[Rfam]
RNA sequence: GUGAGGUGAUGAUGAAGUUUAUCCAUUCUCUGAGUGCAGUGGCACUGCCCUCCUGCAGCGCCCCGAUUCCUGUUCUAGGGUCUGGGUGCCGUGCAGCCUCCAGAGACCCUGCAGUCUCCCAGUGUGCUGCUGGGGGCUGCUGUGGUGUGUGGCUGGCUGCCUGCAGGAGCCAAGCAGUGCCGGCCGGGUCAGGGCCCCUCUGUGGGGGGCUCUGUCACCACUGAGACGAGGGAUGACAUCUGAUUGC
Numbered sequence: 001g002u003g004a005g006g007u008g009a010u011g012a013u014g015a016a017g018u019u020u021a022u023c024c025a026u027u028c029u030c031u032g033a034g035u036g037c038a039g040u041g042g043c044a045c046u047g048c049c050c051u052c053c054u055g056c057a058g059c060g061c062c063c064c065g066a067u068u069c070c071u072g073u074u075c076u077a078g079g080g081u082c083u084g085g086g087u088g089c090c091g092u093g094c095a096g097c098c099u100c101c102a103g104a105g106a107c108c109c110u111g112c113a114g115u116c117u118c119c120c121a122g123u124g125u126g127c128u129g130c131u132g133g134g135g136g137c138u139g140c141u142g143u144g145g146u147g148u149g150u151g152g153c154u155g156g157c158u159g160c161c162u163g164c165a166g167g168a169g170c171c172a173a174g175c176a177g178u179g180c181c182g183g184c185c186g187g188g189u190c191a192g193g194g195c196c197c198c199u200c201u202g203u204g205g206g207g208g209g210c211u212c213u214g215u216c217a218c219c220a221c222u223g224a225g226a227c228g229a230g231g232g233a234u235g236a237c238a239u240c241u242g243a244u245u246g247c
Stems, first nucleotide, its partner, number of pairs: 010246004017239002020236001023232002026230003030225002034221002039184002042181001043179006051168007059088005065082001068080004093160006106146002111140006118134007186219002188216001190214004195209004
RNA: Small nucleolar RNA SNORD17